[Rfam]
RNA sequence: AAUUGUUCUCAGGGCGGGGUGAAAUUCCCCACCGGCGGUAUACUUUCAAGUGAGCCCGCGAGCGCUCGAGAUUUCGAGGUCAGCAGAUCUGGUGAAAAGCCAGAGCCGACGGUCAUAGUCCGGAUGAAAGAGAAUAACA
Numbered sequence: 001a002a003u004u005g006u007u008c009u010c011a012g013g014g015c016g017g018g019g020u021g022a023a024a025u026u027c028c029c030c031a032c033c034g035g036c037g038g039u040a041u042a043c044u045u046u047c048a049a050g051u052g053a054g055c056c057c058g059c060g061a062g063c064g065c066u067c068g069a070g071a072u073u074u075c076g077a078g079g080u081c082a083g084c085a086g087a088u089c090u091g092g093u094g095a096a097a098a099g100c101c102a103g104a105g106c107c108g109a110c111g112g113u114c115a116u117a118g119u120c121c122g123g124a125u126g127a128a129a130g131a132g133a134a135u136a137a138c139a
Stems, first nucleotide, its partner, number of pairs: 003137008017029003031119002033108002035059004054106002062084002088104005110122003

The record is a 139-nucleotide sequence from Vibrio caribbeanicus, which matches "FMN riboswitch aptamer (RFN element)" in Rfam. The match comes from Rfam's covariance-model search (124 bits). The family has 146 seed sequences and 6,230 matches in Rfam 15.1. Its family is annotated with FMN binding in the Gene Ontology.